[Rfam]
Nucleotides: 505
Base pairs, nucleotide, nucleotide: 002390003389005387006386007385008384010382011381012380015327018324020322021321022320023319024318028316029315036312037311038310039309040308041307042306047303048302049300050299051298054233055232057230060227061226062225063224065111066110067109068108072103074102075101076100077099079097081095082094116222117221118220122217123216127212130209132206133205136202137201138199140197143196149192150191154188155187158185159184160183161178162177235295236294240290241289242288244286245285252280254278256277257276261270262269329342331340332339353377355375356374357373361371362370391431392430394428395427397425399423400422403418404417405416407415437476438475440473443470444469445468446467447465448464449463450462451461452460480504481503484500486498487496488495
Number, partner (000 for none) and nucleotide at each position: 001000c002390g003389g004000g005387c006386g007385g008384u009000g010382u011381a012380c013000u014000c015327c016000c017000a018324g019000a020322u021321g022320g023319c024318g025000u026000c027000g028316u029315c030000g031000c032000c033000c034000u035000g036312g037311a038310g039309g040308g041307c042306c043000u044000g045000c046000u047303c048302g049300c050299c051298g052000a053000a054233g055232u056000a057230c058000g059000c060227g061226c062225c063224g064000u065111c066110g067109g068108c069000g070000a071000g072103g073000a074102c075101u076100c077099c078000g079097a080000g081095g082094g083000a084000c085000u086000c087000g088000u089000c090000c091000u092000c093000g094082c095081c096000g097079u098000a099077g100076g101075g102074g103072c104000c105000g106000g107000u108068g109067c110066c111065g112000a113000c114000a115000c116222g117221c118220u119000c120000c121000a122217c123216c124000c125000g126000g127212c128000c129000g130209u131000g132206c133205g134000c135000g136202a137201g138199g139000a140197g141000g142000u143196a144000c145000a146000c147000c148000u149192c150191g151000u152000c153000g154188g155187c156000g157000g158185g159184g160183c161178u162177g163000c164000c165000g166000a167000a168000g169000g170000a171000g172000g173000c174000g175000a176000u177162c178161a179000c180000c181000u182000g183160g184159c185158c186000g187155g188154c189000g190000c191150c192149g193000a194000u195000c196143u197140c198000c199138c200000g201137c202136u203000g204000c205133c206132g207000g208000c209130a210000g211000c212127g213000g214000g215000c216123g217122g218000c219000c220118a221117g222116c223000u224063c225062g226061g227060c228000c229000a230057g231000u232055a233054c234000c235295u236294c237000c238000u239000c240290g241289u242288c243000c244286u245285c246000g247000u248000a249000g250000g251000a252280c253000c254278g255000c256277a257276g258000g259000g260000c261270c262269g263000g264000c265000a266000g267000c268000u269262c270261g271000c272000c273000c274000a275000g276257c277256u278254c279000c280252g281000c282000g283000g284000g285245g286244a287000u288242g289241a290240u291000c292000u293000c294236g295235a296000c297000c298051c299050g300049g301000u302048c303047g304000c305000c306042g307041g308040u309039c310038u311037u312036c313000a314000c315029g316028a317000a318024c319023g320022u321021c322020a323000u324018c325000c326000g327015g328000c329342c330000a331340u332339c333000g334000c335000c336000g337000a338000c339332g340331g341000c342329g343000u344000a345000c346000g347000u348000c349000a350000g351000u352000c353377g354000c355375c356374g357373g358000u359000u360000g361371a362370c363000c364000c365000g366000g367000u368000a369000c370362g371361u372000g373357c374356c375355g376000c377353c378000c379000u380012g381011u382010a383000c384008a385007u386006c387005g388000a389003c390002c391431c392430a393000c394428g395427g396000c397425a398000g399423c400422a401000u402000g403418c404417g405416c406000a407415g408000c409000a410000g411000c412000c413000a414000g415407c416405g417404c418403g419000a420000g421000c422400u423399g424000a425397u426000c427395u428394c429000c430392u431391g432000c433000a434000u435000c436000u437476g438475c439000g440473g441000c442000a443470c444469g445468g446467a447465c448464u449463u450462g451461g452460u453000c454000g455000u456000g457000g458000u459000g460452g461451c462450c463449a464448g465447g466000u467446u468445c469444c470443g471000c472000g473440c474000g475438g476437c477000c478000g479000c480504c481503g482000u483000a484500c485000c486498g487496a488495g489000g490000c491000u492000c493000u494000g495488c496487u497000g498486c499000u500484g501000c502000c503481u504480g505000g
The family of this 505-nucleotide RNA sequence from Streptomyces calvus is "Saccharopolyspora sRNA 350".
The family's consensus secondary structure was predicted with RNAfold.
The family has 2 seed sequences and 1,170 matches in Rfam 15.1.
The literature on the family includes a 2013 paper in PLoS One by Liu et al., "Prediction and characterization of small non-coding RNAs related to secondary metabolites in Saccharopolyspora erythraea".